[Rfam]
Nucleotides: 105
Base pairs, nucleotide, nucleotide: 001105002104003103004102005101006100007099008098013041015040016039017038021031022030023029026077027076028075042070043069044068045067047066048065049063050062051061052060074097079094080093081092082091083090084089
Number, partner (000 for none) and nucleotide at each position: 001105u002104u003103c004102u005101u006100a007099u008098c009000a010000a011000g012000a013041g014000c015040g016039g017038u018000g019000g020000a021031g022030g023029g024000a025000a026077a027076u028075g029023c030022c031021c032000u033000a034000c035000g036000a037000a038017g039016c040015c041013c042070g043069g044068c045067a046000a047066c048065c049063u050062a051061a052060g053000c054000a055000a056000u057000u058000u059000g060052c061051u062050u063049a064000a065048g066047g067045u068044g069043c070042u071000a072000a073000u074097u075028c076027a077026u078000g079094c080093a081092a082091a083090a084089c085000a086000u087000u088000u089084g090083u091082u092081u093080u094079g095000g096000a097074a098008g099007a100006u101005g102004a103003g104002a105001a
A member of the RNA family "SAM riboswitch aptamer (S box leader)" from Listeria grayi, 105 nucleotides long. NCBI's taxonomy places the organism under Bacteria, Bacillati, Bacillota, Listeria, Listeria grayi. The base pairs follow the family's consensus structure, which is taken from published work.